The family of this 48-nucleotide RNA sequence from Galemys pyrenaicus is "Guanidine-II riboswitch aptamer (mini-ykkC)". Simpler in structure and has fewer highly conserved nucleotide positions than the ykkC-yxkD leader. Despite this each of its two stem-loop structures directly bind free guanidine. Therefore, mini-ykkC RNA motif represents a distinct class of guanidine-sensing RNAs. The match comes from Rfam's covariance-model search (34 bits).
RNA sequence: GCGCGGGGACGGCCCCGCCGUGUCCCCCAGAGCAUGGGGACGGCCCCG
Number, nucleotide and partner (000 for none) at each position: 001g000002c000003g018004c017005g016006g015007g014008g013009a000010c000011g000012g000013c008014c007015c006016c005017g004018c003019c000020g000021u000022g000023u000024c000025c000026c000027c000028c000029a000030g000031a000032g000033c000034a000035u048036g047037g046038g045039g044040a000041c000042g000043g000044c039045c038046c037047c036048g035